[Rfam]
RNA: Infectious bronchitis virus D-RNA
Organism: Gammacoronavirus galli
RNA sequence: GGCAGAUAGGCAUGUAGCUUAGCACCUACAUGUCUAUCGCC
Numbered sequence: 001g002g003c004a005g006a007u008a009g010g011c012a013u014g015u016a017g018c019u020u021a022g023c024a025c026c027u028a029c030a031u032g033u034c035u036a037u038c039g040c041c
Base pairs, nucleotide, nucleotide: 001041002040005038006037007036008035009034010033011032012031013030014029015028016027017026